About this RNA:
This 129-nucleotide RNA from Camphora micrantha belongs to the Rfam family "U11 spliceosomal RNA". The family's RNA type in Rfam is spliceosomal small nuclear RNA. Pairs were carried over by alignment from the consensus structure, which is taken from published work.
[Rfam]
RNA sequence: UAAAAGGGUCGGUUGGCUAAAUAUGCCACGCUCGCCCAUUAGAAGGUGAGUGCUGUAUGGCUAUCAAGACAUAUGGCCGACAUAAUUUGUGGGAACCACAAAGGGUUGGCUCGCUCGGCCGACCCUCCA
Numbered sequence: 001u002a003a004a005a006g007g008g009u010c011g012g013u014u015g016g017c018u019a020a021a022u023a024u025g026c027c028a029c030g031c032u033c034g035c036c037c038a039u040u041a042g043a044a045g046g047u048g049a050g051u052g053c054u055g056u057a058u059g060g061c062u063a064u065c066a067a068g069a070c071a072u073a074u075g076g077c078c079g080a081c082a083u084a085a086u087u088u089g090u091g092g093g094a095a096c097c098a099c100a101a102a103g104g105g106u107u108g109g110c111u112c113g114c115u116c117g118g119c120c121g122a123c124c125c126u127c128c129a
Stems, first nucleotide, its partner, number of pairs: 008081005014028004029052008053076007102126008111118002